Fluoride riboswitch aptamer (crcB RNA motif): a 76-nucleotide RNA sequence from Cellulomonas hominis. Lineage of the source: Bacteria > Bacillati > Actinomycetota > Actinomycetes > Cellulomonas. The family has 289 seed sequences and 2,293 matches in Rfam 15.1.
RNA sequence: GGUGGUCUUGGCGAUGGAUCCCGCCGAGACCUUCCCGGUCUGAACCGCCUCCAGGGCUGAUGGUUCCUGCCCCUUC
Numbered sequence: 001g002g003u004g005g006u007c008u009u010g011g012c013g014a015u016g017g018a019u020c021c022c023g024c025c026g027a028g029a030c031c032u033u034c035c036c037g038g039u040c041u042g043a044a045c046c047g048c049c050u051c052c053a054g055g056g057c058u059g060a061u062g063g064u065u066c067c068u069g070c071c072c073c074u075u076c
Stems, first nucleotide, its partner, number of pairs: 010025004016067003020063002047057003